[Rfam]
The family of this 87-nucleotide sequence from Streptohalobacillus salinus is "BsrC". The family's consensus secondary structure was predicted with CMfinder. Rfam describes the family as follows. The 301 nucleotide sequence from Kouji Nakamura has been trimmed to a highly conserved ~85 nucleotide long core to form this family. The organism belongs to Streptohalobacillus, within Bacteria. The family's RNA type in Rfam is small RNA.

RNA sequence: UUUAACUUAAACGAUAUGAACCCUACCUCUUUCAUAUCCUUACGACUCUAUAGUCGAUCCAGUGUGAAUAAGUCUUGCUUAUUAAAU
Numbered sequence: 001u002u003u004a005a006c007u008u009a010a011a012c013g014a015u016a017u018g019a020a021c022c023c024u025a026c027c028u029c030u031u032u033c034a035u036a037u038c039c040u041u042a043c044g045a046c047u048c049u050a051u052a053g054u055c056g057a058u059c060c061a062g063u064g065u066g067a068a069u070a071a072g073u074c075u076u077g078c079u080u081a082u083u084a085a086a087u
Base pairs, nucleotide, nucleotide: 035066036065039062040061043056044055045054046053047052